[Rfam]
This 87-nucleotide sequence from Myotis brandtii belongs to the Rfam family "mir-9195 microRNA precursor family". Pairs were carried over by alignment from the consensus structure, which was predicted with RNAalifold. The source organism's lineage runs through Eukaryota, Opisthokonta, Gnathostomata, Teleostomi and Myotis. It scores 100 bits against the family's covariance model. Gene Ontology terms of the family: miRNA-mediated post-transcriptional gene silencing and RISC complex. Rfam 15.1 lists 438 matches to the family in 7 species.
RNA sequence: AGAGGCCCUCCGUGGCCAGGGUGGGAUGCUUGCCUCGUUGCCGCAGCGACAAAGCAAGCAUUCCGCCAGGCCUCUCACGCUGCCCGC
Numbered sequence: 001a002g003a004g005g006c007c008c009u010c011c012g013u014g015g016c017c018a019g020g021g022u023g024g025g026a027u028g029c030u031u032g033c034c035u036c037g038u039u040g041c042c043g044c045a046g047c048g049a050c051a052a053a054g055c056a057a058g059c060a061u062u063c064c065g066c067c068a069g070g071c072c073u074c075u076c077a078c079g080c081u082g083c084c085c086g087c
Base pairs, nucleotide, nucleotide: 004084005083006082012074014072015071016070017069020067021066022065023064024063025062026061027060028059029058030057031056032055033054037050038049039048040047041046